[Rfam]
RNA sequence: AACAUAGAGGAACAAUAAUCAAUUUUUUGUUCUAGCAAAAAAUUUGGUAUUGUCCCUUUAG
Dot-bracket structure: .....(((((.((((((...((.((((((......)))))).))...)))))).)))))..
Numbered sequence: 001a002a003c004a005u006a007g008a009g010g011a012a013c014a015a016u017a018a019u020c021a022a023u024u025u026u027u028u029g030u031u032c033u034a035g036c037a038a039a040a041a042a043u044u045u046g047g048u049a050u051u052g053u054c055c056c057u058u059u060a061g
Stems, first nucleotide, its partner, number of pairs: 006059005012053006021044002024041006

Source information: Plastid-psbA-4 3UTR RNA: a 61-nucleotide RNA from Ziziphus jujuba. The family is grouped with related families in Rfam's "Plastid-psbA 3UTR RNA clan". A search with the family's covariance model found it, with a score of 59 bits. A reference for the family is Richter et al. (2023), "Retrograde signaling in plants: A critical review focusing on the GUN pathway and beyond", Plant Commun. Pairs were carried over by alignment from the consensus structure, which was predicted with LocARNA. The family's RNA type in Rfam is cis-regulatory element. Plastid psbA-4 is a non-coding RNA (ncRNA) present in plastids. It was identified in inverted repeat sequences in the 3 prime untranslate region (3UTR) of photosystem II quinone-binding protein (psbA).